[Rfam]
RNA sequence: AUUAUUACCCUAACUUGGGCACUGGCUUGCGAUUUGAAUUGAGUAAGUGCUACUAGUUGGGGCAGUUUGA
Number, nucleotide and partner (000 for none) at each position: 001a000002u000003u000004a066005u065006u064007a000008c062009c061010c060011u059012a000013a057014c056015u055016u000017g053018g051019g050020c049021a048022c047023u046024g000025g044026c043027u042028u000029g000030c000031g000032a000033u000034u000035u000036g000037a000038a000039u000040u000041g000042a027043g026044u025045a000046a023047g022048u021049g020050c019051u018052a000053c017054u000055a015056g014057u013058u000059g011060g010061g009062g008063c000064a006065g005066u004067u000068u000069g000070a000
The family of this 70-nucleotide RNA from Betta splendens is "miR-430 microRNA precursor family". A reference for the family is Giraldez et al. (2005), "MicroRNAs regulate brain morphogenesis in zebrafish", Science. A search with the family's covariance model found it, with a score of 57 bits. The family is grouped with related families in Rfam's "mir-290 clan". Lineage of the source: Eukaryota > Deuterostomia > Euteleosteomorpha > Anabantoidei > Betta.